[Rfam]
Shown here is a 125-nucleotide RNA from Erwinia mallotivora, a member of the family "Phenylalanine leader peptide". Its family is annotated with cellular amino acid metabolic process in the Gene Ontology. It scores 114 bits against the family's covariance model. On this family, see Gurvich et al., Nucleic Acids Res 2010: "Two groups of phenylalanine biosynthetic operon leader peptides genes: a high level of apparently incidental frameshifting in decoding Escherichia coli pheL".
RNA sequence: UAUGAAAAAACAGCUGUUUUUCUUCGCAUUCUUUUUUACCUUCCCCUGACCGGGAGGCUAUUCGUCAUUUAAGUAAGAAUGCGAAGACGAACAACUAAGCCUCCCCAGCGGGAGGCUUUUUUUUU
Numbered sequence: 001u002a003u004g005a006a007a008a009a010a011c012a013g014c015u016g017u018u019u020u021u022c023u024u025c026g027c028a029u030u031c032u033u034u035u036u037u038a039c040c041u042u043c044c045c046c047u048g049a050c051c052g053g054g055a056g057g058c059u060a061u062u063c064g065u066c067a068u069u070u071a072a073g074u075a076a077g078a079a080u081g082c083g084a085a086g087a088c089g090a091a092c093a094a095c096u097a098a099g100c101c102u103c104c105c106c107a108g109c110g111g112g113a114g115g116c117u118u119u120u121u122u123u124u125u
Stems, first nucleotide, its partner, number of pairs: 016092004021087013036072003042055004056066003097118009